SAM (S-adenosyl methionine) riboswitch aptamer: a 114-nucleotide sequence from Blastococcus haudaquaticus. The source organism's lineage runs through Bacteria, Actinomycetota, Actinomycetes, Geodermatophilaceae and Blastococcus.

RNA sequence: GGUCUCGAGUGCCAGCGUCAAGCCCCGGCUCGCUGGCCGGCAACCCUCUCCGUCGCGGGGUGCUCCCGGGUGAUGACCUGACCUGGACGAGACGUGUCCCGGUAAGGACGAAGC
Numbered sequence: 001g002g003u004c005u006c007g008a009g010u011g012c013c014a015g016c017g018u019c020a021a022g023c024c025c026c027g028g029c030u031c032g033c034u035g036g037c038c039g040g041c042a043a044c045c046c047u048c049u050c051c052g053u054c055g056c057g058g059g060g061u062g063c064u065c066c067c068g069g070g071u072g073a074u075g076a077c078c079u080g081a082c083c084u085g086g087a088c089g090a091g092a093c094g095u096g097u098c099c100c101g102g103u104a105a106g107g108a109c110g111a112a113g114c
Base pairs, nucleotide, nucleotide: 001078002077003076004075009038011037012036013035014034015033016032021030022029039064040063041062044060045059046058048055081103082102083101085099086098087097088096089095
A search with the family's covariance model found it, with a score of 87 bits.